[Rfam]
RNA: small nucleolar RNA snoR29
RNA sequence: AAAAAAUGAUGACAACCUUUUCAUAAUAUAAAGCCUUUCGGGUCUGAAGAGCAUUAUGAUGAUAAAAAAAAAAAAAACUGAUUUU
Numbered sequence: 001a002a003a004a005a006a007u008g009a010u011g012a013c014a015a016c017c018u019u020u021u022c023a024u025a026a027u028a029u030a031a032a033g034c035c036u037u038u039c040g041g042g043u044c045u046g047a048a049g050a051g052c053a054u055u056a057u058g059a060u061g062a063u064a065a066a067a068a069a070a071a072a073a074a075a076a077a078c079u080g081a082u083u084u085u
Stems, first nucleotide, its partner, number of pairs: 003085004